[Rfam]
RNA sequence: AAUUUUUCAUAGUUCUUUUAGAAUUUUUCUAACAGGAUAUCUGACCUUGGUUGGAAAUUCCAC
Dot-bracket structure: ..................................((((.((((((....)))))).).)))..
Numbered sequence: 001a002a003u004u005u006u007u008c009a010u011a012g013u014u015c016u017u018u019u020a021g022a023a024u025u026u027u028u029c030u031a032a033c034a035g036g037a038u039a040u041c042u043g044a045c046c047u048u049g050g051u052u053g054g055a056a057a058u059u060c061c062a063c
Stems, first nucleotide, its partner, number of pairs: 035061003038057001040055006
Rfam assigns this 63-nucleotide RNA sequence from Mus musculus to the family "U7 small nuclear RNA". The family's consensus secondary structure was predicted with PFOLD.